This 80-nucleotide RNA from Blautia obeum belongs to the Rfam family "Fluoride riboswitch aptamer (crcB RNA motif)".
RNA sequence: AAAUAUAAAGGGAAUGAGGUUCUCCCUAAGUAAUAAAAUUACUUAAACCGCUUAUGAAAGCUGAUGACUUCUGCGAGUAA
Numbered sequence: 001a002a003a004u005a006u007a008a009a010g011g012g013a014a015u016g017a018g019g020u021u022c023u024c025c026c027u028a029a030g031u032a033a034u035a036a037a038a039u040u041a042c043u044u045a046a047a048c049c050g051c052u053u054a055u056g057a058a059a060g061c062u063g064a065u066g067a068c069u070u071c072u073g074c075g076a077g078u079a080a
Stems, first nucleotide, its partner, number of pairs: 010025003016071006050061004
Description
NCBI's taxonomy places the organism under Bacteria, Bacillota, Lachnospirales, Lachnospiraceae, Blautia obeum. Pairs were carried over by alignment from the consensus structure, which is taken from published work.